[Rfam]
RNA sequence: GAGAGUAGGCGUAGGCAGUUGCAGAACCGUCAUUAAUGAUAGUUUUGAGGAAAGUCCGGACUCCCGAAAGACCAAACUUGCUGGAUAACGUCCAGUGCGAGCGAUCGUGAGGAUAGUGCCACAGAAAGAUACCGCCAAAACAAGUAAAAAGUAAAAAGUAAAAAAGCAAAAGAAACAAAAAUUUCUUUUUACUUUUGCCCUUUAACUUUUGCCUUUUUUGGUAAGGGUGCAAAGGUGCGGUAAGAGCGCACCAGCAGCGUCGAGAGGCGUUGGCUCGGUAAACCCCGGUUGGGAGCAAGGCCAGAGGAACUACGGUUGGUCUUUUACCAGUUCCGCGUAUGAGAGCCGCUAGAGGCGUUUGGUAACAACCGUCCCAGAUAGAUAACUGCCAUCAUGUAAAAUUUUUACAUAGAUAACAGAACCCGGCUUACUACCGACUCUCUCUC
Numbered sequence: 001g002a003g004a005g006u007a008g009g010c011g012u013a014g015g016c017a018g019u020u021g022c023a024g025a026a027c028c029g030u031c032a033u034u035a036a037u038g039a040u041a042g043u044u045u046u047g048a049g050g051a052a053a054g055u056c057c058g059g060a061c062u063c064c065c066g067a068a069a070g071a072c073c074a075a076a077c078u079u080g081c082u083g084g085a086u087a088a089c090g091u092c093c094a095g096u097g098c099g100a101g102c103g104a105u106c107g108u109g110a111g112g113a114u115a116g117u118g119c120c121a122c123a124g125a126a127a128g129a130u131a132c133c134g135c136c137a138a139a140a141c142a143a144g145u146a147a148a149a150a151g152u153a154a155a156a157a158g159u160a161a162a163a164a165a166g167c168a169a170a171a172g173a174a175a176c177a178a179a180a181a182u183u184u185c186u187u188u189u190u191a192c193u194u195u196u197g198c199c200c201u202u203u204a205a206c207u208u209u210u211g212c213c214u215u216u217u218u219u220g221g222u223a224a225g226g227g228u229g230c231a232a233a234g235g236u237g238c239g240g241u242a243a244g245a246g247c248g249c250a251c252c253a254g255c256a257g258c259g260u261c262g263a264g265a266g267g268c269g270u271u272g273g274c275u276c277g278g279u280a281a282a283c284c285c286c287g288g289u290u291g292g293g294a295g296c297a298a299g300g301c302c303a304g305a306g307g308a309a310c311u312a313c314g315g316u317u318g319g320u321c322u323u324u325u326a327c328c329a330g331u332u333c334c335g336c337g338u339a340u341g342a343g344a345g346c347c348g349c350u351a352g353a354g355g356c357g358u359u360u361g362g363u364a365a366c367a368a369c370c371g372u373c374c375c376a377g378a379u380a381g382a383u384a385a386c387u388g389c390c391a392u393c394a395u396g397u398a399a400a401a402u403u404u405u406u407a408c409a410u411a412g413a414u415a416a417c418a419g420a421a422c423c424c425g426g427c428u429u430a431c432u433a434c435c436g437a438c439u440c441u442c443u444c445u446c
Stems, first nucleotide, its partner, number of pairs: 001442006008435002011431001014390007022047006029040002052429003056426004061295004070323002075290003079287002081095005096110001097108004111285002116283002118279003132226002134222007142214001234252006254274001255272007299347003306334006314328003318324001354373004359368003
Dot-bracket structure: ((((((.((.(..(((((((.((((((.((........)).))))))....[[[.[[[[.((((.....[[...(((.(((((((.....)))))(((((....)))).)((...(((((...........(((((((((.(.......................................................................).)))))))..)).......((((((.......)))))).((((((((....))))))).)..)))..))))))))).))))...(((....((((((..(((.(...]]).)))))))))..........)))......((((.(((....))).))))..........)))))))................................]]]]]]].)..)).))))))....
Rfam assigns this 446-nucleotide RNA from Nostoc sp. PCC 7107 to the family "Bacterial RNase P class A". Pairs were carried over by alignment from the consensus structure, which is taken from published work. It is annotated as a ribozyme. NCBI's taxonomy places the organism under Bacteria, Bacillati, Cyanophyceae, Nostocales, Nostoc. Ribonuclease P (RNase P) is a ubiquitous endoribonuclease, found in archaea, bacteria and eukarya as well as chloroplasts and mitochondria. Its best characterised activity is the generation of mature 5'-ends of tRNAs by cleaving the 5'-leader elements of precursor-tRNAs.